[Rfam]
RNA sequence: GGAACAGUGGUAACUCCUACGAUUAAGAAACCUGUUUGCAAAAGGGCCCGCAUCUCGCAGGUCACUAAUUAUCAGGUGGGAAAUUCGGUGGAACAUAAUGGAGCCUUGUCCUCCGGGUCAGCGUCUUUGACAAUGGCCCCUGCUCCUGAGAGAAGAAUCUUACUGGGGAACCAGUCUUUAUCGACCGUUGUUAUCAGAAAUUAAACGGAGUCUGGCCUAGUCGGGCUCCGAUGGGAACGGCAACGGUUGUUCCGUUUGACUUGUCGCCCGCUACGGCGUGUGUGUCAAGGUCUGUUGAGUGCAAUCGUAGGACGCCAUUCGUGGCGAACCCGAUACCGAUUACUGCUGCUGUUCC
Numbered sequence: 001g002g003a004a005c006a007g008u009g010g011u012a013a014c015u016c017c018u019a020c021g022a023u024u025a026a027g028a029a030a031c032c033u034g035u036u037u038g039c040a041a042a043a044g045g046g047c048c049c050g051c052a053u054c055u056c057g058c059a060g061g062u063c064a065c066u067a068a069u070u071a072u073c074a075g076g077u078g079g080g081a082a083a084u085u086c087g088g089u090g091g092a093a094c095a096u097a098a099u100g101g102a103g104c105c106u107u108g109u110c111c112u113c114c115g116g117g118u119c120a121g122c123g124u125c126u127u128u129g130a131c132a133a134u135g136g137c138c139c140c141u142g143c144u145c146c147u148g149a150g151a152g153a154a155g156a157a158u159c160u161u162a163c164u165g166g167g168g169a170a171c172c173a174g175u176c177u178u179u180a181u182c183g184a185c186c187g188u189u190g191u192u193a194u195c196a197g198a199a200a201u202u203a204a205a206c207g208g209a210g211u212c213u214g215g216c217c218u219a220g221u222c223g224g225g226c227u228c229c230g231a232u233g234g235g236a237a238c239g240g241c242a243a244c245g246g247u248u249g250u251u252c253c254g255u256u257u258g259a260c261u262u263g264u265c266g267c268c269c270g271c272u273a274c275g276g277c278g279u280g281u282g283u284g285u286c287a288a289g290g291u292c293u294g295u296u297g298a299g300u301g302c303a304a305u306c307g308u309a310g311g312a313c314g315c316c317a318u319u320c321g322u323g324g325c326g327a328a329c330c331c332g333a334u335a336c337c338g339a340u341u342a343c344u345g346c347u348g349c350u351g352u353u354c355c
Stems, first nucleotide, its partner, number of pairs: 001355004010349003015312007030077005045063004050058001086338005091252004141154001143152003162175005186245007206230003313326005
The record is a 355-nucleotide RNA from Saccharomyces kudriavzevii, which matches "Nuclear RNase P" in Rfam. On this family, see Frank et al., RNA 2000: "Phylogenetic-comparative analysis of the eukaryal ribonuclease P RNA". From the family's description: Ribonuclease P (RNase P) is a ubiquitous endoribonuclease, found in archaea, bacteria and eukarya as well as chloroplasts and mitochondria. Taxonomically the source falls in Saccharomyces kudriavzevii (Eukaryota, Opisthokonta, Saccharomycotina, Saccharomycetes).